[Rfam]
RNA sequence: UGGCCCAUUUUGGCACUAGCACAUUUUUGCUUCUUUAUAUAUCCACUGAGCAAUUAUGUGUAGUGCCAAUAUUGGAAA
Numbered sequence: 001u002g003g004c005c006c007a008u009u010u011u012g013g014c015a016c017u018a019g020c021a022c023a024u025u026u027u028u029g030c031u032u033c034u035u036u037a038u039a040u041a042u043c044c045a046c047u048g049a050g051c052a053a054u055u056a057u058g059u060g061u062a063g064u065g066c067c068a069a070u071a072u073u074g075g076a077a078a
Stems, first nucleotide, its partner, number of pairs: 004075002007072002010069008019061006027053006
The family of this 78-nucleotide RNA sequence from Silurus meridionalis is "mir-96 microRNA precursor family". Rfam 15.1 lists 691 matches to the family in 590 species. The organism belongs to Silurus, within Eukaryota.